[Rfam]
RNA: Lysine riboswitch aptamer
RNA sequence: AUGUGAGGUAGAGGCGCGAAGAAAAAGAGUAAUAUGCGGAAGCUUAGACGAGCGAUGCACGCAUGUGAAAGGGUUCUUUGCCGAAGCAAUUAUGUACCGUCAACACAUAAUUAGCUGGGCCUGCACUUAAUAAGUGCUGGACUGUCACGCACGUGCUUGUAUAGCUCAGCGUGGAGAACUGCGAAACGU
Numbered sequence: 001a002u003g004u005g006a007g008g009u010a011g012a013g014g015c016g017c018g019a020a021g022a023a024a025a026a027g028a029g030u031a032a033u034a035u036g037c038g039g040a041a042g043c044u045u046a047g048a049c050g051a052g053c054g055a056u057g058c059a060c061g062c063a064u065g066u067g068a069a070a071g072g073g074u075u076c077u078u079u080g081c082c083g084a085a086g087c088a089a090u091u092a093u094g095u096a097c098c099g100u101c102a103a104c105a106c107a108u109a110a111u112u113a114g115c116u117g118g119g120c121c122u123g124c125a126c127u128u129a130a131u132a133a134g135u136g137c138u139g140g141a142c143u144g145u146c147a148c149g150c151a152c153g154u155g156c157u158u159g160u161a162u163a164g165c166u167c168a169g170c171g172u173g174g175a176g177a178a179c180u181g182c183g184a185a186a187c188g189u
Stems, first nucleotide, its partner, number of pairs: 008182004016081008032066007085116003088112008117143002120140002123137005145174006